[Rfam]
Nucleotides: 049
Stems, first nucleotide, its partner, number of pairs: 002019007036049005
Number, partner (000 for none) and nucleotide at each position: 001000c002019g003018g004017a005016g006015a007014g008013g009000a010000c011000g012000g013008c014007c015006u016005c017004u018003c019002c020000a021000a022000u023000c024000c025000a026000u027000a028000u029000c030000a031000a032000c033000c034000g035000a036049c037048c038047g039046g040045g041000a042000c043000g044000g045040c046039c047038c048037g049036g